[Rfam]
RNA sequence: UAAUCGGGACGACCUGAUUACGCAUCACAUUUUGGGGACGACCCC
Numbered sequence: 001u002a003a004u005c006g007g008g009a010c011g012a013c014c015u016g017a018u019u020a021c022g023c024a025u026c027a028c029a030u031u032u033u034g035g036g037g038a039c040g041a042c043c044c045c
Base pairs, nucleotide, nucleotide: 001020002019003018004017005016006015007014008013034045035044036043037042
Source information
The family of this 45-nucleotide RNA from Zophobihabitans entericus is "Guanidine-II riboswitch aptamer (mini-ykkC)". The organism belongs to Zophobihabitans, within Bacteria. On this family, see Weinberg et al., Nucleic Acids Res 2007: "Identification of 22 candidate structured RNAs in bacteria using the CMfinder comparative genomics pipeline". The match comes from Rfam's covariance-model search (44 bits).